[Rfam]
RNA sequence: CCGGGACCUUCGCAGGCUCCCGGCUACAGGCGGUGUCCGAAUCGCCCAAGCCUGC
Numbered sequence: 001c002c003g004g005g006a007c008c009u010u011c012g013c014a015g016g017c018u019c020c021c022g023g024c025u026a027c028a029g030g031c032g033g034u035g036u037c038c039g040a041a042u043c044g045c046c047c048a049a050g051c052c053u054g055c
Stems, first nucleotide, its partner, number of pairs: 001023006012055005029046005
The record is a 55-nucleotide RNA, which matches "chrB-b RNA" in Rfam.
The sequence is in the family's curated seed alignment.